Shown here is an 85-nucleotide RNA sequence from Musca domestica, a member of the family "mir-263 microRNA precursor family".
RNA sequence: UCAGCACAGUUAAUGGCACUGGAAGAAUUCACGGGAGUUUUUAAUGUACUUUCCCGUGAUCUCUUAGUGGCAUCUAUGGUGCAGG
Numbered sequence: 001u002c003a004g005c006a007c008a009g010u011u012a013a014u015g016g017c018a019c020u021g022g023a024a025g026a027a028u029u030c031a032c033g034g035g036a037g038u039u040u041u042u043a044a045u046g047u048a049c050u051u052u053c054c055c056g057u058g059a060u061c062u063c064u065u066a067g068u069g070g071c072a073u074c075u076a077u078g079g080u081g082c083a084g085g
Base pairs, nucleotide, nucleotide: 004082005081006080007079009077010076013073014072015071017069018068020066021065022064023062025061026060029059030058031057032056033055034054
Dot-bracket structure: ...((((.((..(((.((.((((.((..((((((...................))))))))).))).)).)))..)).))))...
The family has 52 seed sequences and 368 matches in Rfam 15.1.
Pairs were carried over by alignment from the consensus structure, which was predicted with RNAalifold.
On this family, see Li et al., BMC Genomics 2009: "Direct sequencing and expression analysis of a large number of miRNAs in Aedes aegypti and a multi-species survey of novel mosquito miRNAs".